A member of the RNA family "TPP riboswitch aptamer (THI element)" from Firmicutes bacterium AF12-30, 106 nucleotides long.
[Rfam]
RNA sequence: AAAUAAAAACAGGGAGCUUGUGAAACAGGCUGAGAGGAAAGUAAAACUUUCGACCUUUGAACCUGAUUUGGGUAAUGCCAGCGUAGGAAACGAAGAUCAUGAAUCG
Numbered sequence: 001a002a003a004u005a006a007a008a009a010c011a012g013g014g015a016g017c018u019u020g021u022g023a024a025a026c027a028g029g030c031u032g033a034g035a036g037g038a039a040a041g042u043a044a045a046a047c048u049u050u051c052g053a054c055c056u057u058u059g060a061a062c063c064u065g066a067u068u069u070g071g072g073u074a075a076u077g078c079c080a081g082c083g084u085a086g087g088a089a090a091c092g093a094a095g096a097u098c099a100u101g102a103a104u105c106g
Stems, first nucleotide, its partner, number of pairs: 011056003016030005037051005062087004068081004